RNA: T-box leader
RNA sequence: GAAAGAACGUUGAAAGAGAAGAGUAGUUUACAAAAACGCCAUUUAUAGGGAGAAAAUGCCAUAGACUGAAAGCAUUUUUAUGGUAGAGGUAAAUGAAUUCACCUCUUGAGUUGGCACCGGGACCGCUUUUUUAGCGUAAAGGUGUGUCGGUGGAAAGCCGUUAUCUGAAUGAAGUUAAAAUUUAUUAGUUUGAUAAAUGAUUCAAGGGUGGUACCGCGAAGCCUCGCCCCUUUC
Numbered sequence: 001g002a003a004a005g006a007a008c009g010u011u012g013a014a015a016g017a018g019a020a021g022a023g024u025a026g027u028u029u030a031c032a033a034a035a036a037c038g039c040c041a042u043u044u045a046u047a048g049g050g051a052g053a054a055a056a057u058g059c060c061a062u063a064g065a066c067u068g069a070a071a072g073c074a075u076u077u078u079u080a081u082g083g084u085a086g087a088g089g090u091a092a093a094u095g096a097a098u099u100c101a102c103c104u105c106u107u108g109a110g111u112u113g114g115c116a117c118c119g120g121g122a123c124c125g126c127u128u129u130u131u132u133a134g135c136g137u138a139a140a141g142g143u144g145u146g147u148c149g150g151u152g153g154a155a156a157g158c159c160g161u162u163a164u165c166u167g168a169a170u171g172a173a174g175u176u177a178a179a180a181u182u183u184a185u186u187a188g189u190u191u192g193a194u195a196a197a198u199g200a201u202u203c204a205a206g207g208g209u210g211g212u213a214c215c216g217c218g219a220a221g222c223c224u225c226g227c228c229c230c231u232u233u234c
Stems, first nucleotide, its partner, number of pairs: 007111002015106004026094006039083003052079008114145005148160003180198007205231004216227004